[Rfam]
RNA sequence: AUUUAAUGAAAAGCGCCAGAACUUAGAUUUCGAUCGGGAAAAGGAUCUAAGUUGACGAGGGACAGGGUUCAUCGAGUUUUCGGCGGAUGCCCUGCGGUGUAUUCACCACCGAUAGCGGAUCUACAAAACCAUGGAGCAAUCUGUGGAACAAAAUGAUCUUGGUGAAAAGGU
Number, nucleotide and partner (000 for none) at each position: 001a000002u000003u000004u000005a000006a000007u000008g000009a000010a000011a000012a000013g000014c000015g000016c000017c000018a000019g000020a053021a052022c051023u050024u049025a048026g047027a046028u000029u044030u000031c000032g000033a000034u000035c000036g000037g000038g000039a000040a000041a000042a000043g000044g029045a000046u027047c026048u025049a024050a023051g022052u021053u020054g000055a000056c000057g000058a000059g000060g000061g000062a000063c094064a093065g092066g091067g090068u000069u000070c000071a000072u083073c082074g081075a080076g000077u000078u000079u000080u075081c074082g073083g072084c000085g000086g000087a000088u000089g000090c067091c066092c065093u064094g063095c111096g110097g109098u108099g107100u000101a000102u000103u000104c000105a000106c000107c099108a098109c097110c096111g095112a000113u000114a000115g000116c161117g159118g158119a157120u156121c155122u000123a000124c000125a000126a000127a000128a000129c146130c145131a144132u143133g142134g141135a140136g000137c000138a000139a000140u135141c134142u133143g132144u131145g130146g129147a000148a000149c000150a000151a000152a000153a000154u000155g121156a120157u119158c118159u117160u000161g116162g000163u000164g000165a000166a000167a000168a000169g000170g000171u000
RNA: glmS glucosamine-6-phosphate activated ribozyme aptamer
Organism: Alkaliphilus oremlandii